[Rfam]
RNA sequence: GGGCAGGGGGGUCAACUUCCGUCAGCGCGAUGCGCCCACGGAAGCAAUUCCG
Numbered sequence: 001g002g003g004c005a006g007g008g009g010g011g012u013c014a015a016c017u018u019c020c021g022u023c024a025g026c027g028c029g030a031u032g033c034g035c036c037c038a039c040g041g042a043a044g045c046a047a048u049u050c051c052g
Base pairs, nucleotide, nucleotide: 016044017043018042019041020040021039022038025035026034027033028032
RNA: ffh sRNA